[Rfam]
RNA sequence: ACUUCAUUUCACGUGCUCUCUCGCAGAUCAGAGCGACGAGAUAGUGUGUGAAAUGAAGAGA
Dot-bracket structure: .((((((..(.((((((.((((...............)))).)))))).)..))))))...
Source information: The family of this 61-nucleotide RNA sequence from Pristionchus pacificus is "mir-8364 microRNA precursor family". The source organism's lineage runs through Eukaryota, Eumetazoa, Bilateria, Diplogasteromorpha and Pristionchus. The family's consensus secondary structure was predicted with RNAalifold.